[Rfam]
RNA sequence: CUGUCCUCUGGAGUUCCCUUGAUCACUUCACUGGGGCUAUGGGCUCUGCUGUUCCUACUGAAGUGUUUGGGGGAACUCUGGGUGGCAC
Numbered sequence: 001c002u003g004u005c006c007u008c009u010g011g012a013g014u015u016c017c018c019u020u021g022a023u024c025a026c027u028u029c030a031c032u033g034g035g036g037c038u039a040u041g042g043g044c045u046c047u048g049c050u051g052u053u054c055c056u057a058c059u060g061a062a063g064u065g066u067u068u069g070g071g072g073g074a075a076c077u078c079u080g081g082g083u084g085g086c087a088c
Base pairs, nucleotide, nucleotide: 005084007082008081009080011078012077013076014075015074016073017072018071019070020069022068024065025064026063027062028061029060030059032057033056034055035054
Dot-bracket structure: ....(.(((.((((((((((.(.(((((((.((((..................)))).)))))))..))))))))))).))).)....